This 62-nucleotide RNA from Salmo salar belongs to the Rfam family "mir-142 microRNA precursor family". Its family is annotated with miRNA-mediated post-transcriptional gene silencing and RISC complex in the Gene Ontology. The literature on the family includes a 2010 paper in BMC Genomics by Linsen et al., "Small RNA expression and strain specificity in the rat".
[Rfam]
RNA sequence: CAUAAAGUAGAAAGCACUACUAAACUCCUCGCCACAGUGUAGUGUUUCCUACUUUAUGGAUG
Numbered sequence: 001c002a003u004a005a006a007g008u009a010g011a012a013a014g015c016a017c018u019a020c021u022a023a024a025c026u027c028c029u030c031g032c033c034a035c036a037g038u039g040u041a042g043u044g045u046u047u048c049c050u051a052c053u054u055u056a057u058g059g060a061u062g
Base pairs, nucleotide, nucleotide: 001058002057003056004055005054006053007052008051009050010049013046014045015044016043017042018041019040020039